[Rfam]
RNA sequence: GGAUGUGAGGGUGAUCUGUCGUGACUUCUGGCACCCCACUGAUUGCAAGGGUUGAUUUGACUGAUUUGGGUAGGUGGGCAGGUGACCCCUUUCUCCUUCAGUGUUCCCUGUGUGUCCCUCCCAAAGCUGUGAGCUCGACUGAUAAGGACAAUCUUCUUCAUAGAGAUGGUAUCAUUCAUUGGUCAAAUGUAUAUGGUAGCUUCACUCUCCUUCUAGAAACUUCAAACAAGCUCAAAGUUCAUUUGUGCAGAAAUGCAAGGUAGUCAAAAUUCCAAGACUGAAGACACAUCUGAGUGAGGAGCUGCAAAAAGCAAUCUGCCAUUGCUU
Numbered sequence: 001g002g003a004u005g006u007g008a009g010g011g012u013g014a015u016c017u018g019u020c021g022u023g024a025c026u027u028c029u030g031g032c033a034c035c036c037c038a039c040u041g042a043u044u045g046c047a048a049g050g051g052u053u054g055a056u057u058u059g060a061c062u063g064a065u066u067u068g069g070g071u072a073g074g075u076g077g078g079c080a081g082g083u084g085a086c087c088c089c090u091u092u093c094u095c096c097u098u099c100a101g102u103g104u105u106c107c108c109u110g111u112g113u114g115u116c117c118c119u120c121c122c123a124a125a126g127c128u129g130u131g132a133g134c135u136c137g138a139c140u141g142a143u144a145a146g147g148a149c150a151a152u153c154u155u156c157u158u159c160a161u162a163g164a165g166a167u168g169g170u171a172u173c174a175u176u177c178a179u180u181g182g183u184c185a186a187a188u189g190u191a192u193a194u195g196g197u198a199g200c201u202u203c204a205c206u207c208u209c210c211u212u213c214u215a216g217a218a219a220c221u222u223c224a225a226a227c228a229a230g231c232u233c234a235a236a237g238u239u240c241a242u243u244u245g246u247g248c249a250g251a252a253a254u255g256c257a258a259g260g261u262a263g264u265c266a267a268a269a270u271u272c273c274a275a276g277a278c279u280g281a282a283g284a285c286a287c288a289u290c291u292g293a294g295u296g297a298g299g300a301g302c303u304g305c306a307a308a309a310a311g312c313a314a315u316c317u318g319c320c321a322u323u324g325c326u327u
Stems, first nucleotide, its partner, number of pairs: 001107003006100006013092002018088001023086001025084001027082004032077001034073001036069003041066004045061001115169002118165003122137001124135001126134002140160002146157003201267001205263002208260002211257001213255001221250002226246005292327003296322001298320002301315001303313003

This 327-nucleotide sequence from Onychorhynchus coronatus belongs to the Rfam family "7SK RNA". Rfam describes the family as follows. 7SK was discovered as an abundant small nuclear RNA in the mid-70s but a possible function has only recently been suggested. The match comes from Rfam's covariance-model search (167 bits). Taxonomically the source falls in Onychorhynchus (Eukaryota, Opisthokonta, Sauria, Tyrannidae). The base pairs follow the family's consensus structure, which is taken from published work.